RNA sequence: GUAAUUCGCUAGGGGUCCUGGGAAUGCGUUUUCCGGGUGAGAGAUACCCUUCGUACCUGAUCUGGAUAAUGCCAGCGAAGGAAAGCGCAAAGUUGUUUCC
Numbered sequence: 001g002u003a004a005u006u007c008g009c010u011a012g013g014g015g016u017c018c019u020g021g022g023a024a025u026g027c028g029u030u031u032u033c034c035g036g037g038u039g040a041g042a043g044a045u046a047c048c049c050u051u052c053g054u055a056c057c058u059g060a061u062c063u064g065g066a067u068a069a070u071g072c073c074a075g076c077g078a079a080g081g082a083a084a085g086c087g088c089a090a091a092g093u094u095g096u097u098u099c100c
Stems, first nucleotide, its partner, number of pairs: 007087004011050004016044001017037008056081003062075004
The record is a 100-nucleotide RNA from Massilia sp. Root351, which matches "TPP riboswitch aptamer (THI element)" in Rfam.
The match comes from Rfam's covariance-model search (69 bits).
Taxonomically the source falls in Massilia (Bacteria, Pseudomonadati, Betaproteobacteria, Oxalobacteraceae).